This 71-nucleotide sequence from Massilia sp. Root335 belongs to the Rfam family "Pseudomonas sRNA P9". Rfam's curators write: This small RNA (sRNA) was computationally identified in the genome of the opportunistic pathogen Pseudomonas aeruginosa and its expression verified by northern blot analysis. P9 appears to be conserved in several Pseudomonas species in addition to Bordetella spp. In both Pseudomonas and Bordetella spp P9 appears to be located upstream of a predicted threonine dehydratase gene. P9 has a predicted Rho independent terminator at the 3' end but the function of P9 is unknown. This sRNA also appears to be present in the Betaproteobacteria (Burkholderia and Ralstonia species). It is annotated as a non-coding RNA gene. The base pairs follow the family's consensus structure, which was predicted with RNAalifold. It scores 50 bits against the family's covariance model. A reference for the family is Livny et al. (2006), "Identification of 17 Pseudomonas aeruginosa sRNAs and prediction of sRNA-encoding genes in 10 diverse pathogens using the bioinformatic tool sRNAPredict2", Nucleic Acids Res.
RNA sequence: GCGAUUAUUACCACCAUCAACCGGAUGGUGGGUUAGCGCUUGUUACUGCAACCCGCCUGGAGGCGGGUCUG
Numbered sequence: 001g002c003g004a005u006u007a008u009u010a011c012c013a014c015c016a017u018c019a020a021c022c023g024g025a026u027g028g029u030g031g032g033u034u035a036g037c038g039c040u041u042g043u044u045a046c047u048g049c050a051a052c053c054c055g056c057c058u059g060g061a062g063g064c065g066g067g068u069c070u071g
Stems, first nucleotide, its partner, number of pairs: 011031007051068007